[Rfam]
RNA sequence: GGCUUCCAGGGUUGGCACGGUGGCUGCAACAGCUAGCUCGACAAUCUACAAAAAGCGCCCGCCUCAACGACGAGACGGCACUUUCCCGAUCGAACGGGACUUGGACAAAGGCGUCCUGCUGGCAACAGCGGGACGCC
Numbered sequence: 001g002g003c004u005u006c007c008a009g010g011g012u013u014g015g016c017a018c019g020g021u022g023g024c025u026g027c028a029a030c031a032g033c034u035a036g037c038u039c040g041a042c043a044a045u046c047u048a049c050a051a052a053a054a055g056c057g058c059c060c061g062c063c064u065c066a067a068c069g070a071c072g073a074g075a076c077g078g079c080a081c082u083u084u085c086c087c088g089a090u091c092g093a094a095c096g097g098g099a100c101u102u103g104g105a106c107a108a109a110g111g112c113g114u115c116c117u118g119c120u121g122g123c124a125a126c127a128g129c130g131g132g133a134c135g136c137c
Base pairs, nucleotide, nucleotide: 012108013107014106015027016026017025055081057079058078059077062074064073065072084099085098086097087096088095110137111136112135113134114133115132116131118129119128120127121126
Shown here is a 137-nucleotide RNA from Metapseudomonas resinovorans, a member of the family "Pseudomonas sRNA P11". The family's RNA type in Rfam is non-coding RNA gene. Lineage of the source: Bacteria > Pseudomonadati > Pseudomonadaceae > Metapseudomonas > Metapseudomonas resinovorans. For this family Rfam cites "Identification of 17 Pseudomonas aeruginosa sRNAs and prediction of sRNA-encoding genes in 10 diverse pathogens using the bioinformatic tool sRNAPredict2" (Livny et al., Nucleic Acids Res, 2006). This small RNA (sRNA) was computationally identified in the genome of the opportunistic pathogen Pseudomonas aeruginosa and its expression verified by northern blot analysis.